Iron response element II: a 31-nucleotide RNA sequence from Tauraco erythrolophus. A reference for the family is Koeller et al. (1989), "A cytosolic protein binds to structural elements within the iron regulatory region of the transferrin receptor mRNA", Proc Natl Acad Sci U S A. Gene Ontology term of the family: response to iron ion. The source organism's lineage runs through Eukaryota, Opisthokonta, Gnathostomata, Saurischia and Tauraco. The base pairs follow the family's consensus structure, which is taken from published work.

Nucleotides: 031
Stems, first nucleotide, its partner, number of pairs: 004028004009024005014018001
Number, partner (000 for none) and nucleotide at each position: 001000u002000c003000c004028c005027c006026a007025u008000c009024u010023g011022u012021a013020g014018c015000a016000g017000u018014g019000c020013c021012u022011g023010c024009a025007a026006u027005g028004g029000c030000a031000u

By type it is a cis-regulatory element. Rfam's curators write: IRE, TFRC, SLC40A1, SDHB, SLC11A2, CDC42BPA, ACO2, ALAS2_H.SAPIENS, CDC14A, EPAS1, ALAS2, qoxD, Hao1, NDUFS1, transferrin, Aconitate.